[Rfam]
RNA sequence: GAUAAACUUCAGGGCAGGGUGAGCUUUUAAUUAGCAAUUCCCGACCGGCGGUGAUAGUCCGCGAAACCUUCGGGUUUGAUUUGGUGAAACUCCAAAACCGACAGUAUAGUCUGGAUGGAAGAAGUGUUUU
Numbered sequence: 001g002a003u004a005a006a007c008u009u010c011a012g013g014g015c016a017g018g019g020u021g022a023g024c025u026u027u028u029a030a031u032u033a034g035c036a037a038u039u040c041c042c043g044a045c046c047g048g049c050g051g052u053g054a055u056a057g058u059c060c061g062c063g064a065a066a067c068c069u070u071c072g073g074g075u076u077u078g079a080u081u082u083g084g085u086g087a088a089a090c091u092c093c094a095a096a097a098c099c100g101a102c103a104g105u106a107u108a109g110u111c112u113g114g115a116u117g118g119a120a121g122a123a124g125u126g127u128u129u130u
Base pairs, nucleotide, nucleotide: 004127006125007124008123009122010121017042018041019040044110045109046100047099048062049061050060051059057098058097065076066075067074080096081095082094083093084092102113103112104111
Dot-bracket structure: ...(.(((((......(((....................))).[[((((((.....[[))))..(((......)))...(((((.......)))))]])).(((....]]))).......))))).)...

Annotation
A member of the RNA family "FMN riboswitch aptamer (RFN element)" from Cetobacterium somerae, 130 nucleotides long. Pairs were carried over by alignment from the consensus structure, which is taken from published work. Lineage of the source: Bacteria > Fusobacteriati > Fusobacteriota > Cetobacterium > Cetobacterium somerae.